[Rfam]
RNA sequence: AGAGAAAGCCCACGUGCAGCAACGGAGACCCAACACAGCCAAAAAUAAAUAAAUAAAUAAAUUUAUUUAUUUAUUUAUUUUUGGCUGUGUUGGGUCUCCGUUGCUGCACGUGGGCUUUCUCU
Numbered sequence: 001a002g003a004g005a006a007a008g009c010c011c012a013c014g015u016g017c018a019g020c021a022a023c024g025g026a027g028a029c030c031c032a033a034c035a036c037a038g039c040c041a042a043a044a045a046u047a048a049a050u051a052a053a054u055a056a057a058u059a060a061a062u063u064u065a066u067u068u069a070u071u072u073a074u075u076u077a078u079u080u081u082u083g084g085c086u087g088u089g090u091u092g093g094g095u096c097u098c099c100g101u102u103g104c105u106g107c108a109c110g111u112g113g114g115c116u117u118u119c120u121c122u
Stems, first nucleotide, its partner, number of pairs: 001122028030093002033090015
RNA: mir-2513 microRNA precursor family
Organism: Physeter macrocephalus